RNA sequence: CGCCUCGGUCAGUAAUGACUAAGGUGAUUAAGCAGAAGUCAGCCGACGGCAUAGUAGCCUAAUGCAAAGAUUAAUACCUUGGACAUGGUGAAGGCC
Numbered sequence: 001c002g003c004c005u006c007g008g009u010c011a012g013u014a015a016u017g018a019c020u021a022a023g024g025u026g027a028u029u030a031a032g033c034a035g036a037a038g039u040c041a042g043c044c045g046a047c048g049g050c051a052u053a054g055u056a057g058c059c060u061a062a063u064g065c066a067a068a069g070a071u072u073a074a075u076a077c078c079u080u081g082g083a084c085a086u087g088g089u090g091a092a093g094g095c096c
Base pairs, nucleotide, nucleotide: 001026002025004023005022007020008019009018010017011016038047039046040045048096049095050094057089058088059087067079
Group II catalytic intron D1-D4-1: a 96-nucleotide RNA sequence from Microbulbifer sp. THAF38. NCBI's taxonomy places the organism under Bacteria, Pseudomonadota, Cellvibrionales, Microbulbiferaceae, Microbulbifer.